[Rfam]
azaaromatic riboswitch aptamer (yjdF RNA): a 151-nucleotide RNA sequence from Enterocloster clostridioformis. The family's consensus secondary structure is taken from published work. The organism belongs to Enterocloster clostridioformis, within Bacteria. A search with the family's covariance model found it, with a score of 62 bits.

RNA sequence: AAAAGCAGAGAUAAAAACACAACGCGGGAUCAAAGCCUGCAGAGCCGGUAGGUAGUCCGGCCGCAUUCCCAUAGUCCUGCCUGAAACGGCGGGGUAACAGGAAUGUAAGUAACCCUCCCUCCUUGGGUCGUCCGUUCUUUGUUCAUCACAU
Numbered sequence: 001a002a003a004a005g006c007a008g009a010g011a012u013a014a015a016a017a018c019a020c021a022a023c024g025c026g027g028g029a030u031c032a033a034a035g036c037c038u039g040c041a042g043a044g045c046c047g048g049u050a051g052g053u054a055g056u057c058c059g060g061c062c063g064c065a066u067u068c069c070c071a072u073a074g075u076c077c078u079g080c081c082u083g084a085a086a087c088g089g090c091g092g093g094g095u096a097a098c099a100g101g102a103a104u105g106u107a108a109g110u111a112a113c114c115c116u117c118c119c120u121c122c123u124u125g126g127g128u129c130g131u132c133c134g135u136u137c138u139u140u141g142u143u144c145a146u147c148a149c150a151u
Stems, first nucleotide, its partner, number of pairs: 004143008044061005063106006117127003